About this RNA
FMN riboswitch aptamer (RFN element): a 142-nucleotide RNA from Pseudomonas entomophila. The family's consensus secondary structure is taken from published work. The RFN element is a highly conserved domain that is found frequently in the 5'-untranslated regions of prokaryotic mRNAs that encode for flavin mononucleotide (FMN) biosynthesis and transport proteins. Lineage of the source: Bacteria > Pseudomonadati > Gammaproteobacteria > Pseudomonadaceae > Pseudomonas entomophila.
RNA sequence: AAGGGUCUUCAGGGCGGGGUGAAAGUCCCCACCGGCGGUAAAUCGAAAGAUGAGCCCGCGAGCGCCCCGGCCAUGCCGGGGGUCAGCAGAUCUGGUGAGAUUCCAGGGCCGACGGUCAUAGUCCGGAUGAAAGAAGGCGUUU
Numbered sequence: 001a002a003g004g005g006u007c008u009u010c011a012g013g014g015c016g017g018g019g020u021g022a023a024a025g026u027c028c029c030c031a032c033c034g035g036c037g038g039u040a041a042a043u044c045g046a047a048a049g050a051u052g053a054g055c056c057c058g059c060g061a062g063c064g065c066c067c068c069g070g071c072c073a074u075g076c077c078g079g080g081g082g083u084c085a086g087c088a089g090a091u092c093u094g095g096u097g098a099g100a101u102u103c104c105a106g107g108g109c110c111g112a113c114g115g116u117c118a119u120a121g122u123c124c125g126g127a128u129g130a131a132a133g134a135a136g137g138c139g140u141u142u
Stems, first nucleotide, its partner, number of pairs: 003140001005138006017029003031122002033111002035059004054109002062087002091107005113125003